[Rfam]
RNA: Alphaproteobacterial sRNA ar45
RNA sequence: GCCCAAAUCGCACGUGCCUGUGGUCGCGUGUCGGUCGGCGGAUCGGACAAGAGGCCGGUGAAUCGUCAAGAAUGACCGGCAGCCGGAGGCGAACCGGCGAACCCCGCCCAACCGGGGGACGCGACUUAAAGCAACGACGGACCGGGCUUUU
Numbered sequence: 001g002c003c004c005a006a007a008u009c010g011c012a013c014g015u016g017c018c019u020g021u022g023g024u025c026g027c028g029u030g031u032c033g034g035u036c037g038g039c040g041g042a043u044c045g046g047a048c049a050a051g052a053g054g055c056c057g058g059u060g061a062a063u064c065g066u067c068a069a070g071a072a073u074g075a076c077c078g079g080c081a082g083c084c085g086g087a088g089g090c091g092a093a094c095c096g097g098c099g100a101a102c103c104c105c106g107c108c109c110a111a112c113c114g115g116g117g118g119a120c121g122c123g124a125c126u127u128a129a130a131g132c133a134a135c136g137a138c139g140g141a142c143c144g145g146g147c148u149u150u151u
Base pairs, nucleotide, nucleotide: 001147002146003145004144008137009136010135015133016132017131022126023125024124025123026122027121028120029119030067032065033064034063042059043058044057045056046055076097077096078095079094098118102117103116104115105114106113